[Rfam]
RNA sequence: GAUUCAUAUCCAUUUGUACCGUAGACAGCAGGGGCGGCUUGCCGCUUAAUGAUCCUGCCGAGGACAAGACGCUCUUUAAUUUUAAAGAUGACGACUUUUCUGCCCUCGUGUCUACUUCCGUAGACCGGGGGCUUUUUCAUAUCGGU
Numbered sequence: 001g002a003u004u005c006a007u008a009u010c011c012a013u014u015u016g017u018a019c020c021g022u023a024g025a026c027a028g029c030a031g032g033g034g035c036g037g038c039u040u041g042c043c044g045c046u047u048a049a050u051g052a053u054c055c056u057g058c059c060g061a062g063g064a065c066a067a068g069a070c071g072c073u074c075u076u077u078a079a080u081u082u083u084a085a086a087g088a089u090g091a092c093g094a095c096u097u098u099u100c101u102g103c104c105c106u107c108g109u110g111u112c113u114a115c116u117u118c119c120g121u122a123g124a125c126c127g128g129g130g131g132c133u134u135u136u137u138c139a140u141a142u143c144g145g146u
Stems, first nucleotide, its partner, number of pairs: 028058006034045003103131006110125006

The record is a 146-nucleotide RNA from Bacillus sp. OxB-1, which matches "Ribosomal protein L10 leader" in Rfam.
It scores 69 bits against the family's covariance model.
NCBI's taxonomy places the organism under Bacteria, Bacillota, Bacilli, Bacillaceae, Bacillus.
Gene Ontology term of the family: regulation of gene expression.